[Rfam]
RNA sequence: UGGCGAUGAAGCAGUAGACUGGUUCGGUAUCAGCCGAUUGCGGAGCCAGACCAUGGGUUGAGCGAAAACCACAAGCCGAAUAGAUUCGAUGAAUCGACAGAAAACGCUUAAU
Dot-bracket structure: ((((......(((((.(.(((..[[[[...))).).)))))...)))).............(((...........]]]]...((((.....)))).........))).....
Numbered sequence: 001u002g003g004c005g006a007u008g009a010a011g012c013a014g015u016a017g018a019c020u021g022g023u024u025c026g027g028u029a030u031c032a033g034c035c036g037a038u039u040g041c042g043g044a045g046c047c048a049g050a051c052c053a054u055g056g057g058u059u060g061a062g063c064g065a066a067a068a069c070c071a072c073a074a075g076c077c078g079a080a081u082a083g084a085u086u087c088g089a090u091g092a093a094u095c096g097a098c099a100g101a102a103a104a105c106g107c108u109u110a111a112u
Stems, first nucleotide, its partner, number of pairs: 001048004011041005017035001019033003024079004062107003083095004

drum RNA: a 112-nucleotide RNA. The family's consensus secondary structure is taken from published work. Firmicutes, Bacteroidetes (1 example), Proteobacteria (2 examples), Spirochaetes (2 examples).